[Rfam]
RNA sequence: UGAAGUAUGCAAUAAUAGCUUUCCAAGUGCUUUGGUGUUCCCUCGGAGUAUCCGGGGCAUGUUUAGGAAACUAAACAUAAAACUGAAGAAAUUCACUUGGUUAGACGCUACUUCA
Numbered sequence: 001u002g003a004a005g006u007a008u009g010c011a012a013u014a015a016u017a018g019c020u021u022u023c024c025a026a027g028u029g030c031u032u033u034g035g036u037g038u039u040c041c042c043u044c045g046g047a048g049u050a051u052c053c054g055g056g057g058c059a060u061g062u063u064u065a066g067g068a069a070a071c072u073a074a075a076c077a078u079a080a081a082a083c084u085g086a087a088g089a090a091a092u093u094c095a096c097u098u099g100g101u102u103a104g105a106c107g108c109u110a111c112u113u114c115a
Stems, first nucleotide, its partner, number of pairs: 001115006009108002023100007030088007041057006
Shown here is a 115-nucleotide RNA sequence, a member of the family "DUF3800-V RNA". Rfam's curators put it in the seed alignment. The family's consensus secondary structure is taken from published work.